[Rfam]
RNA sequence: GUGCACAUGAGGAGAUAUACUCGGAUUCCCCUUCAGGACAUCUUGGAUGAUGCAGAUUCGAGAUUCUGAUGCA
Numbered sequence: 001g002u003g004c005a006c007a008u009g010a011g012g013a014g015a016u017a018u019a020c021u022c023g024g025a026u027u028c029c030c031c032u033u034c035a036g037g038a039c040a041u042c043u044u045g046g047a048u049g050a051u052g053c054a055g056a057u058u059c060g061a062g063a064u065u066c067u068g069a070u071g072c073a
Base pairs, nucleotide, nucleotide: 002073003072004071005070
This 73-nucleotide RNA from Arachis hypogaea belongs to the Rfam family "Small nucleolar RNA snoR60". Rfam links the family to the GO terms RNA processing and nucleolus. Lineage of the source: Eukaryota > Embryophyta > Tracheophyta > Spermatophyta > Arachis. By type it is a C/D-box small nucleolar RNA. Clan: SNORD101 clan. Pairs were carried over by alignment from the consensus structure, which was predicted with PFOLD.